[Rfam]
The record is a 127-nucleotide RNA from Caenorhabditis remanei, which matches "Caenorhabditis snoRNA ceN45" in Rfam.
Rfam links the family to the GO terms nucleolus and RNA processing.
RNA sequence: UAGGGGCACAGAGUUGCAGUUGAUUGAAACUAAAUCAUGUGCGCUAAGUUGUCCCGAAAUCAUAUUCGGAUGAUAAGAAAACAGUGUUCGUUUCAUGGAACACCGUUGAUAAACUAUUCGAACACUU
Numbered sequence: 001u002a003g004g005g006g007c008a009c010a011g012a013g014u015u016g017c018a019g020u021u022g023a024u025u026g027a028a029a030c031u032a033a034a035u036c037a038u039g040u041g042c043g044c045u046a047a048g049u050u051g052u053c054c055c056g057a058a059a060u061c062a063u064a065u066u067c068g069g070a071u072g073a074u075a076a077g078a079a080a081a082c083a084g085u086g087u088u089c090g091u092u093u094c095a096u097g098g099a100a101c102a103c104c105g106u107u108g109a110u111a112a113a114c115u116a117u118u119c120g121a122a123c124a125c126u127u
Stems, first nucleotide, its partner, number of pairs: 003055006009048001012045003016042003021037005067120006074113001077110001082105001084103006
Record summary
It scores 123 bits against the family's covariance model. Taxonomically the source falls in Caenorhabditis (Eukaryota, Opisthokonta, Rhabditomorpha, Rhabditoidea).